The record is a 162-nucleotide sequence from Oryza meridionalis, which matches "MIR162_2 microRNA precursor family" in Rfam.
Rfam links the family to the GO terms miRNA-mediated post-transcriptional gene silencing and RISC complex.
The family is grouped with related families in Rfam's "MIR167 microRNA precursor clan".
The source organism's lineage runs through Eukaryota, Spermatophyta, Liliopsida, Poaceae and Oryza.
RNA sequence: GCCUGGGCGCAGUGGUUUAUCGAUCCCUUCCCUGCCUUGUGGCGCUGAUCCAGGAGCGGCGAAUUUCUUUUGAGAGGGUGUUCUUUUUUUUUCUCCCCUUUUUGGUCCUUGUUGCAGCCAACGACAACGCGGGAAUCGAUCGAUAAACCUCUGCAUCCAGUU
Dot-bracket structure: ..(((((.((((.((((((((((((..(((((.((.(((.....................................................................................))).)))))))..)))))))))))).)))).)))))..